[Rfam]
Nucleotides: 171
Stems, first nucleotide, its partner, number of pairs: 005167006011157002013097001015152003020146003025142008039115005045075005055066004082106004088100003117129003
Number, partner (000 for none) and nucleotide at each position: 001000g002000u003000g004000g005167c006166a007165c008164c009163u010162c011157g012156u013097u014000c015152g016151g017150u018000g019000a020146g021145g022144c023000g024000u025142c026141u027140g028139c029138g030137c031136g032135g033000a034000c035000a036000c037000a038000g039115g040114c041113c042112a043111c044000u045075g046074a047073c048072c049071c050000c051000a052000c053000g054000a055066c056065a057064u058063c059000g060000a061000g062000a063058g064057a065056u066055g067000c068000c069000c070000a071049g072048g073047g074046u075045c076000a077000g078000g079000a080000c081000a082106g083105g084104u085103c086000u087000c088100c089099c090098c091000g092000g093000c094000u095000u096000a097013a098090g099089g100088g101000g102000u103085g104084a105083c106082c107000c108000c109000a110000g111043g112042u113041g114040g115039c116000u117129u118128c119127c120000c121000a122000u123000u124000c125000a126000g127119g128118g129117a130000u131000c132000a133000c134000g135032c136031c137030g138029u139028g140027c141026a142025g143000u144022g145021c146020c147000g148000a149000a150017g151016c152015u153000c154000u155000u156012a157011c158000a159000u160000g161000a162010g163009g164008g165007g166006u167005g168000c169000u170000g171000g